Shown here is a 102-nucleotide sequence from Blautia luti, a member of the family "SAM riboswitch aptamer (S box leader)". Its family is annotated with regulation of gene expression in the Gene Ontology. Rfam 15.1 lists 9,625 matches to the family in 4,158 species.

RNA sequence: CUUUUAUUCAGAGUGGUGGAGAUACAAAGGAUCUGUGAAGCCACGGCAACCCCGGAUAACCCAGGAAGGUGCCAACCUGAGCGAGCAAUCGAACAAUAAGAG
Number, nucleotide and partner (000 for none) at each position: 001c102002u101003u100004u099005u098006a097007u096008u095009c000010a000011g000012a000013g044014u043015g042016g041017u040018g000019g000020a000021g033022a032023u031024a000025c000026a000027a000028a000029g000030g078031a023032u022033c021034u000035g000036u000037g000038a000039a000040g017041c016042c015043a014044c013045g073046g072047c071048a070049a000050c069051c068052c065053c064054g000055g062056a000057u000058a000059a000060c000061c000062c055063a000064g053065g052066a000067a000068g051069g050070u048071g047072c046073c045074a000075a000076c000077c000078u030079g000080a000081g000082c091083g090084a089085g000086c000087a000088a000089u084090c083091g082092a000093a000094c000095a008096a007097u006098a005099a004100g003101a002102g001